FMN riboswitch aptamer (RFN element): a 131-nucleotide sequence from Vulcanibacillus modesticaldus. The family's consensus secondary structure is taken from published work. Gene Ontology term of the family: FMN binding.
RNA sequence: UAUUUCCUUCGGGGCAGGGUGAAAUUCCCGACCGGCGGUAAUCUAGAUUUAGAGAGCCCGCGAGCUAAUGUUUUAGCAGAUCUGGUGAGAUUCCAGAGCCGACAGUAUAGUCUGGAUGGAAGAAGGAUGUC
Numbered sequence: 001u002a003u004u005u006c007c008u009u010c011g012g013g014g015c016a017g018g019g020u021g022a023a024a025u026u027c028c029c030g031a032c033c034g035g036c037g038g039u040a041a042u043c044u045a046g047a048u049u050u051a052g053a054g055a056g057c058c059c060g061c062g063a064g065c066u067a068a069u070g071u072u073u074u075a076g077c078a079g080a081u082c083u084g085g086u087g088a089g090a091u092u093c094c095a096g097a098g099c100c101g102a103c104a105g106u107a108u109a110g111u112c113u114g115g116a117u118g119g120a121a122g123a124a125g126g127a128u129g130u131c
Base pairs, nucleotide, nucleotide: 003129005127006126007125008124009123010122017029018028019027031111032110033101034100035061036060037059038058056099057098064077065076066075081097082096083095084094085093103114104113105112